[Rfam]
The family of this 132-nucleotide RNA from Cricetulus griseus is "Small nucleolar RNA SNORA72". Lineage of the source: Eukaryota > Dipnotetrapodomorpha > Tetrapoda > Theria > Cricetulus. It is annotated as an H/ACA-box small nucleolar RNA. From the family's description: U72 is a member of the H/ACA class of snoRNAs. The snoRNA gene is located in intron 4 of the ribosomal L30 protein gene in human, mouse and chicken. The base pairs follow the family's consensus structure, which was predicted with PFOLD.
Nucleotides: 132
Base pairs, nucleotide, nucleotide: 003057004056005055016044017043018042019041020040021039022038023037024036025035026034067125068124069123070122072121073120082109083108084107085106086105087104089102090101091100
Number, partner (000 for none) and nucleotide at each position: 001000c002000u003057g004056c005055g006000a007000a008000u009000c010000u011000u012000c013000u014000c015000g016044c017043u018042g019041u020040u021039c022038u023037g024036a025035u026034u027000c028000u029000g030000u031000g032000a033000u034026a035025a036024u037023c038022a039021g040020g041019g042018c043017a044016g045000g046000c047000u048000a049000g050000a051000c052000a053000u054000u055005c056004g057003c058000u059000a060000u061000a062000g063000a064000g065000a066000g067125a068124c069123c070122a071000c072121g073120c074000a075000u076000g077000u078000g079000u080000c081000c082109c083108c084107a085106g086105g087104c088000c089102u090101g091100g092000u093000u094000c095000u096000u097000u098000a099000c100091c101090u102089a103000c104087g105086u106085c107084u108083g109082g110000c111000u112000u113000u114000c115000u116000a117000a118000a119000u120073g121072c122070u123069g124068g125067u126000g127000a128000c129000a130000a131000a132000c
The literature on the family includes a 1997 paper in Genes Dev by Ganot et al., "The family of box ACA small nucleolar RNAs is defined by an evolutionarily conserved secondary structure and ubiquitous sequence elements essential for RNA accumulation".